[Rfam]
RNA sequence: GCUGAACUGUUUUUGCGAUGUGUUCCUAAUAUGUACUACAAUUAUAUUGGGAACAUUUUGCAUAAAUAGUUUUGU
Numbered sequence: 001g002c003u004g005a006a007c008u009g010u011u012u013u014u015g016c017g018a019u020g021u022g023u024u025c026c027u028a029a030u031a032u033g034u035a036c037u038a039c040a041a042u043u044a045u046a047u048u049g050g051g052a053a054c055a056u057u058u059u060g061c062a063u064a065a066a067u068a069g070u071u072u073u074g075u
Stems, first nucleotide, its partner, number of pairs: 004072007014062005020056014

About this RNA:
Shown here is a 75-nucleotide sequence from Cricetulus griseus, a member of the family "mir-450 microRNA precursor family". The literature on the family includes a 2010 paper in Mol Hum Reprod by Ahn et al., "MicroRNA transcriptome in the newborn mouse ovaries determined by massive parallel sequencing". Rfam 15.1 lists 374 matches to the family in 128 species. Lineage of the source: Eukaryota > Euteleostomi > Theria > Cricetidae > Cricetulus.